[Rfam]
RNA sequence: AUCUUAUCAAGAGCAGGUGGAGGGACAAGCCCGAUGAUACCCGGCAACCGACCUAUUUUAGGCACGGUGCUAAUUCUUGCAGCGGCAGCUGAGAGAUAAGAA
Number, nucleotide and partner (000 for none) at each position: 001a000002u101003c100004u099005u098006a097007u096008c095009a000010a000011g000012a000013g042014c000015a000016g041017g040018u039019g000020g000021a000022g032023g031024g030025a000026c079027a078028a077029g076030c024031c023032c022033g000034a000035u000036g000037a000038u000039a018040c017041c016042c013043g071044g070045c069046a068047a000048c067049c066050g063051a000052c062053c061054u000055a000056u000057u000058u000059u000060a000061g053062g052063c050064a000065c000066g049067g048068u046069g045070c044071u043072a000073a000074u000075u094076c029077u028078u027079g026080c091081a090082g089083c088084g000085g000086c000087a000088g083089c082090u081091g080092a000093g000094a075095g008096a007097u006098a005099a004100g003101a002102a000
RNA: SAM riboswitch aptamer (S box leader)
Organism: Domibacillus iocasae